Description
The record is a 149-nucleotide sequence from Pseudomonas sp. TTU2014-080ASC, which matches "PrrF RNA" in Rfam.

RNA sequence: UUGACAUGCAAAUGAGAAUUGUUACUAUUAGCUCAACUGGUCGCGAGAUCAGCCGAUAAGCUCAAGAGACCUCCAGUCGGACUCUUCAGGUUAUCUCCUCAUCAGGCUAAUCACGGUUUUUGACCCGGCACUUGCCGGGUCUUUUUUUG
Numbered sequence: 001u002u003g004a005c006a007u008g009c010a011a012a013u014g015a016g017a018a019u020u021g022u023u024a025c026u027a028u029u030a031g032c033u034c035a036a037c038u039g040g041u042c043g044c045g046a047g048a049u050c051a052g053c054c055g056a057u058a059a060g061c062u063c064a065a066g067a068g069a070c071c072u073c074c075a076g077u078c079g080g081a082c083u084c085u086u087c088a089g090g091u092u093a094u095c096u097c098c099u100c101a102u103c104a105g106g107c108u109a110a111u112c113a114c115g116g117u118u119u120u121u122g123a124c125c126c127g128g129c130a131c132u133u134g135c136c137g138g139g140u141c142u143u144u145u146u147u148u149g
Stems, first nucleotide, its partner, number of pairs: 034055001037052006061089002064086005070079001097106003122141008

For this family Rfam cites "Identification of tandem duplicate regulatory small RNAs in Pseudomonas aeruginosa involved in iron homeostasis" (Wilderman et al., Proc Natl Acad Sci U S A, 2004). About the family: PrrF RNA is a small RNA involved in iron homeostasis and is found exclusively in Pseudomonas species. NCBI's taxonomy places the organism under Bacteria, Pseudomonadota, Pseudomonadales, Pseudomonadaceae, Pseudomonas. By type it is a small RNA.